[Rfam]
RNA sequence: UUCUAAAUGAUUAUAUCAAUUAUCAUUUUAACUGAGGAAGUAUAUGCAGGACAAAAUAAAAAAUUAGGAAUUCUUCGUUUAUGAUUUAAGAA
Number, nucleotide and partner (000 for none) at each position: 001u092002u091003c090004u089005a000006a000007a000008u000009g000010a000011u000012u000013a000014u000015a000016u000017c000018a000019a000020u000021u000022a000023u000024c000025a000026u000027u000028u000029u000030a000031a000032c000033u000034g000035a000036g000037g000038a000039a000040g000041u000042a000043u000044a000045u000046g000047c000048a000049g000050g000051a000052c000053a000054a000055a000056a000057u000058a000059a000060a000061a000062a000063a000064u000065u000066a000067g000068g000069a000070a000071u000072u000073c000074u000075u000076c000077g000078u000079u000080u000081a000082u000083g000084a000085u000086u000087u000088a000089a004090g003091a002092a001